[Rfam]
RNA sequence: CCAUACAAAUCGGGGAGCUAGCGGUGCCUUGUAAUCCACAAACCGCUUUAGUGGAGAUUAUGUUAAUUUUGAGGGUGAUUUUAGUAUGACGCCUUAUGCAAUGGUGUUGAGAGUUUAGUCCUAUAUUGUAGAUAUUAGGUGAACCAUGUCAGGUUGGGAACAAAGCAGCAUUAAGUCUAGAUAUCUAGGUUUAUGGGGUAGCUAAACUUGAGUCAAAGUAUAAUGAAACGAGUGGUAGAAUUUAUUCGAUUUAUUAGCGUAUGG
Number, nucleotide and partner (000 for none) at each position: 001c264002c263003a262004u261005a260006c259007a000008a059009a058010u057011c056012g030013g029014g028015g027016a000017g025018c024019u023020a000021g000022c000023g019024g018025u017026g000027c015028c014029u013030u012031g000032u000033a000034a000035u055036c054037c053038a052039c051040a000041a000042a000043c000044c000045g000046c000047u000048u000049u000050a000051g039052u038053g037054g036055a035056g011057a010058u009059u008060a000061u000062g000063u000064u257065a000066a255067u000068u253069u000070u000071g000072a000073g247074g246075g245076u244077g243078a000079u240080u239081u238082u237083a236084g000085u234086a233087u232088g000089a000090c000091g000092c225093c000094u223095u222096a221097u220098g219099c218100a000101a000102u216103g214104g213105u212106g000107u000108u000109g000110a000111g209112a208113g207114u206115u205116u204117a203118g202119u201120c197121c196122u195123a194124u193125a192126u189127u188128g000129u187130a186131g185132a184133u183134a000135u180136u179137a178138g177139g176140u175141g000142a000143a000144c000145c000146a171147u170148g169149u168150c000151a000152g000153g000154u163155u162156g161157g000158g000159a000160a000161c156162a155163a154164a000165g000166c000167a000168g149169c148170a147171u146172u000173a000174a000175g140176u139177c138178u137179a136180g135181a000182u000183a133184u132185c131186u130187a129188g127189g126190u000191u000192u125193a124194u123195g122196g121197g120198g000199u000200a000201g119202c118203u117204a116205a115206a114207c113208u112209u111210g000211a000212g105213u104214c103215a000216a102217a000218g099219u098220a097221u096222a095223a094224u000225g092226a000227a000228a000229c000230g000231a000232g087233u086234g085235g000236u083237a082238g081239a080240a079241u000242u000243u077244a076245u075246u074247c073248g000249a000250u000251u000252u000253a068254u000255u066256a000257g064258c000259g006260u005261a004262u003263g002264g001

The record is a 264-nucleotide sequence from Oceanivirga miroungae, which matches "Bacterial large signal recognition particle RNA" in Rfam. NCBI's taxonomy places the organism under Bacteria, Fusobacteriia, Fusobacteriales, Leptotrichiaceae, Oceanivirga. It scores 125 bits against the family's covariance model. Its family is annotated with SRP-dependent cotranslational protein targeting to membrane, signal sequence recognition and signal recognition particle, plasma membrane targeting in the Gene Ontology.